[Rfam]
RNA sequence: GAGCUGUGAAGAAAUUGGCUUUAGUGAAGGUUGGGUCCUUUGCAUUCUUCUGAUUACAAGAUGAUAGAGCCGCACCUGAGCUC
Numbered sequence: 001g002a003g004c005u006g007u008g009a010a011g012a013a014a015u016u017g018g019c020u021u022u023a024g025u026g027a028a029g030g031u032u033g034g035g036u037c038c039u040u041u042g043c044a045u046u047c048u049u050c051u052g053a054u055u056a057c058a059a060g061a062u063g064a065u066a067g068a069g070c071c072g073c074a075c076c077u078g079a080g081c082u083c
Stems, first nucleotide, its partner, number of pairs: 001083004

The family of this 83-nucleotide RNA sequence from Raphanus sativus is "small nucleolar RNA snoR114". For this family Rfam cites "Mining small RNA sequencing data: a new approach to identify small nucleolar RNAs in Arabidopsis" (Chen and Wu, Nucleic Acids Res, 2009). The base pairs follow the family's consensus structure, which was predicted with RNAalifold. NCBI's taxonomy places the organism under Eukaryota, eudicotyledons, Pentapetalae, malvids, Raphanus.